[Rfam]
Shown here is a 40-nucleotide sequence from Alkalihalobacillus trypoxylicola, a member of the family "Ribosomal protein L19 leader". The base pairs follow the family's consensus structure, which was predicted with CMfinder. By type it is a cis-regulatory leader. Rfam's curators write: This family is a putative r-protein leader autoregulatory structure found in B. subtilis and other low-GC Gram-positive bacteria. It is located in the 5' untranslated regions of mRNAs encoding ribosomal protein L19 (rplS).
RNA sequence: ACGAUGUUCCGCUGUCUAUUUUGAUACACAAGAACAUCUG
Number, nucleotide and partner (000 for none) at each position: 001a000002c000003g038004a037005u036006g035007u034008u033009c032010c000011g000012c000013u030014g029015u028016c000017u026018a025019u000020u000021u000022u000023g000024a000025u018026a017027c000028a015029c014030a013031a000032g009033a008034a007035c006036a005037u004038c003039u000040g000